[Rfam]
RNA: c-di-AMP riboswitch aptamer (ydaO/yuaA leader)
RNA sequence: UAUAUCCACACGCUUAAUCCUUCUAAAGGAAUGGGGGACCCAUGUUUUUGGGGUGAAUUUUUCUUAUCUGAGAAAAAAGGACAUCUCUUCGUCCUAACCCGUCAGCUAACCUCAUCAGCGUGAAGAGAGUAGAC
Numbered sequence: 001u002a003u004a005u006c007c008a009c010a011c012g013c014u015u016a017a018u019c020c021u022u023c024u025a026a027a028g029g030a031a032u033g034g035g036g037g038a039c040c041c042a043u044g045u046u047u048u049u050g051g052g053g054u055g056a057a058u059u060u061u062u063c064u065u066a067u068c069u070g071a072g073a074a075a076a077a078a079g080g081a082c083a084u085c086u087c088u089u090c091g092u093c094c095u096a097a098c099c100c101g102u103c104a105g106c107u108a109a110c111c112u113c114a115u116c117a118g119c120g121u122g123a124a125g126a127g128a129g130u131a132g133a134c
Stems, first nucleotide, its partner, number of pairs: 011120004018030003031115006041050002051100003059076004079094004